[Rfam]
RNA sequence: GGGCCUCCGUCAAUGGCACUGGAAGAAUUCACGGCUUCCUGAUAACGUCGCCGUGACUUCUCCGGUGCUGUGGACGGCGGUGC
Dot-bracket structure: ..(((.((((..((((((.(((..((..((((((................)))))).))..))).))))))..)))).)))..